[Rfam]
RNA sequence: GCUGAGCCUAGUAACGUGGGCUUGUAACCCAGGUGGGGGCAUUAAGGUGAUGGGACGCAAAUUCAGCUGACCGGUCAGGCCUAGAUUAGGCUAAAUUCUGGCCUGCCCUGUUCAAGUUGGGAGUUGACCAAAGUAGCCCUAUCAAACGGUUGGGUGACUUGGGUCCUAAAGAGGAGGGGAAUGCGUGAGGCUGGCUUCACAGAGCAACGACUACCUCCUGCUCCUGCCAGUGGGAAGGACAACGGGCUGGUGCCUCCUGGGCUCAUUAGCACCUGGGUGGCUGAGAUCUGUUGAACGAUCACCUUU
Numbered sequence: 001g002c003u004g005a006g007c008c009u010a011g012u013a014a015c016g017u018g019g020g021c022u023u024g025u026a027a028c029c030c031a032g033g034u035g036g037g038g039g040c041a042u043u044a045a046g047g048u049g050a051u052g053g054g055a056c057g058c059a060a061a062u063u064c065a066g067c068u069g070a071c072c073g074g075u076c077a078g079g080c081c082u083a084g085a086u087u088a089g090g091c092u093a094a095a096u097u098c099u100g101g102c103c104u105g106c107c108c109u110g111u112u113c114a115a116g117u118u119g120g121g122a123g124u125u126g127a128c129c130a131a132a133g134u135a136g137c138c139c140u141a142u143c144a145a146a147c148g149g150u151u152g153g154g155u156g157a158c159u160u161g162g163g164u165c166c167u168a169a170a171g172a173g174g175a176g177g178g179g180a181a182u183g184c185g186u187g188a189g190g191c192u193g194g195c196u197u198c199a200c201a202g203a204g205c206a207a208c209g210a211c212u213a214c215c216u217c218c219u220g221c222u223c224c225u226g227c228c229a230g231u232g233g234g235a236a237g238g239a240c241a242a243c244g245g246g247c248u249g250g251u252g253c254c255u256c257c258u259g260g261g262c263u264c265a266u267u268a269g270c271a272c273c274u275g276g277g278u279g280g281c282u283g284a285g286a287u288c289u290g291u292u293g294a295a296c297g298a299u300c301a302c303c304u305u306u
Stems, first nucleotide, its partner, number of pairs: 001040003004023007028037003044305008053296001056293002058290002062285008071276002073273003078263007088255003092252002098250008107238002111235002113232002116228001118226007126165004131160004136155004141150003166171001172219006184209003191202003
Overview
The record is a 306-nucleotide sequence from Carnegiea gigantea, which matches "Plant signal recognition particle RNA" in Rfam. Rfam 15.1 lists 4,988 matches to the family in 266 species. The match comes from Rfam's covariance-model search (221 bits). Rfam links the family to the GO terms SRP-dependent cotranslational protein targeting to membrane, signal sequence recognition and signal recognition particle, endoplasmic reticulum targeting. The family's RNA type in Rfam is non-coding RNA gene. The base pairs follow the family's consensus structure, which is taken from published work. Its Rfam clan is "SRP clan". The source organism's lineage runs through Eukaryota, Spermatophyta, eudicotyledons, Echinocereeae and Carnegiea.